[Rfam]
RNA sequence: GAGUGUAUCUCUCCGGCGAGUCUAAUCUGUGUAUCAGAGUAGACGUAGCGAAAGCGACAUGGCCGCAGCCUCUUUGAGGCCAGGGCCGCCGUCCUUCAGGGCGGGGAGUCGCAGGGAUACGACCCGAAACCGAGUGAUCUAUGCGUGGGCAGGGUGAAGCGUACCGAAAGGCACGUGGAGGCCCGUUAGAGUUGGUGUCUUACAAUACCCUCUCGUGACCUACGUAUAGGGGUGAAAGGCCCAUCGAACUCGGCAACAGCUGGUU
Numbered sequence: 001g002a003g004u005g006u007a008u009c010u011c012u013c014c015g016g017c018g019a020g021u022c023u024a025a026u027c028u029g030u031g032u033a034u035c036a037g038a039g040u041a042g043a044c045g046u047a048g049c050g051a052a053a054g055c056g057a058c059a060u061g062g063c064c065g066c067a068g069c070c071u072c073u074u075u076g077a078g079g080c081c082a083g084g085g086c087c088g089c090c091g092u093c094c095u096u097c098a099g100g101g102c103g104g105g106g107a108g109u110c111g112c113a114g115g116g117a118u119a120c121g122a123c124c125c126g127a128a129a130c131c132g133a134g135u136g137a138u139c140u141a142u143g144c145g146u147g148g149g150c151a152g153g154g155u156g157a158a159g160c161g162u163a164c165c166g167a168a169a170g171g172c173a174c175g176u177g178g179a180g181g182c183c184c185g186u187u188a189g190a191g192u193u194g195g196u197g198u199c200u201u202a203c204a205a206u207a208c209c210c211u212c213u214c215g216u217g218a219c220c221u222a223c224g225u226a227u228a229g230g231g232g233u234g235a236a237a238g239g240c241c242c243a244u245c246g247a248a249c250u251c252g253g254c255a256a257c258a259g260c261u262g263g264u265u
Stems, first nucleotide, its partner, number of pairs: 005120008014111004020044004026038004048055002061087004068080004090103004123263002126260001130253006139229011150217001152184004159176004164171002189214003194210002197208002231241003
Shown here is a 265-nucleotide part of an RNA from Halohasta litchfieldiae, a member of the family "Archaeal large subunit ribosomal RNA".